The record is a 67-nucleotide RNA from Frankia alni, which matches "Transposase-2 RNA" in Rfam. The base pairs follow the family's consensus structure, which is taken from published work. The source organism's lineage runs through Bacteria, Bacillati, Frankiales, Frankia and Frankia alni. It is annotated as a small RNA.
RNA sequence: GAAACGGGAACCCGGCACGGCCACGGCCGAUCAGACCGGGAGUGCCUCCCCGCAAGGUGAGGCGGCA
Numbered sequence: 001g002a003a004a005c006g007g008g009a010a011c012c013c014g015g016c017a018c019g020g021c022c023a024c025g026g027c028c029g030a031u032c033a034g035a036c037c038g039g040g041a042g043u044g045c046c047u048c049c050c051c052g053c054a055a056g057g058u059g060a061g062g063c064g065g066c067a
Base pairs, nucleotide, nucleotide: 011040012039013038014037015036018029019028020027021026044063045062046061047060048059050057051056